Mammalian CPEB3 ribozyme: a 74-nucleotide RNA sequence from Crocodylus porosus. Lineage of the source: Eukaryota > Teleostomi > Euteleostomi > Sarcopterygii > Crocodylus.
RNA sequence: AUUGCAAGUUUGAGGCCAUAGCAGAAGCACUCAUGGCACAGCCAUGUCAGAUUCUGAGGAAUCUGAAUUCUGCA
Number, nucleotide and partner (000 for none) at each position: 001a000002u000003u000004g000005c000006a000007a000008g000009u000010u000011u000012g000013a000014g043015g042016c041017c000018a000019u000020a000021g073022c072023a071024g070025a069026a068027g039028c000029a000030c000031u000032c000033a000034u000035g000036g000037c000038a000039c027040a000041g016042c015043c014044a000045u000046g000047u000048c065049a064050g063051a062052u061053u060054c059055u000056g000057a000058g000059g054060a053061a052062u051063c050064u049065g048066a000067a000068u026069u025070c024071u023072g022073c021074a000
The family's consensus secondary structure is taken from published work.